[Rfam]
RNA: mraW RNA
Organism: Amycolatopsis methanolica
RNA sequence: GGCGACGGAUGUCGUGAGGCCUCUGUCCGCUCAGCGGCCCUGGUGCACCUUCCCCGGCACCAGGUCCGCAGCGGGCGGGCGGGGACCUGACGGCAUCCGGACGACGGU
Numbered sequence: 001g002g003c004g005a006c007g008g009a010u011g012u013c014g015u016g017a018g019g020c021c022u023c024u025g026u027c028c029g030c031u032c033a034g035c036g037g038c039c040c041u042g043g044u045g046c047a048c049c050u051u052c053c054c055c056g057g058c059a060c061c062a063g064g065u066c067c068g069c070a071g072c073g074g075g076c077g078g079g080c081g082g083g084g085a086c087c088u089g090a091c092g093g094c095a096u097c098c099g100g101a102c103g104a105c106g107g108u
Stems, first nucleotide, its partner, number of pairs: 008097007018087002021084012034069004039064008